[Rfam]
RNA sequence: GCGCUGGUUUAGCUCAAUGGUUACUUCAAUUCAAACUCUGUUUCAAGGUCCGCGGGCUAUGAAGUACGAACCAUGGGCGCUGUCCAGCGCUUUU
Numbered sequence: 001g002c003g004c005u006g007g008u009u010u011a012g013c014u015c016a017a018u019g020g021u022u023a024c025u026u027c028a029a030u031u032c033a034a035a036c037u038c039u040g041u042u043u044c045a046a047g048g049u050c051c052g053c054g055g056g057c058u059a060u061g062a063a064g065u066a067c068g069a070a071c072c073a074u075g076g077g078c079g080c081u082g083u084c085c086a087g088c089g090c091u092u093u094u
Base pairs, nucleotide, nucleotide: 002089003088004087005086006085007084012078013077014076015075017074018073019072020071025070026069027068
Vault RNA: a 94-nucleotide RNA sequence from Coregonus sp. 'balchen'. NCBI's taxonomy places the organism under Eukaryota, Actinopterygii, Neopterygii, Salmonidae, Coregonus. A search with the family's covariance model found it, with a score of 65 bits. The base pairs follow the family's consensus structure, which is taken from published work. This family of RNAs are found as part of the enigmatic vault ribonucleoprotein complex. The complex consists of a major vault protein (MVP), two minor vault proteins (VPARP and TEP1), and several small untranslated RNA molecules. It has been suggested that the vault complex is involved in drug resistance.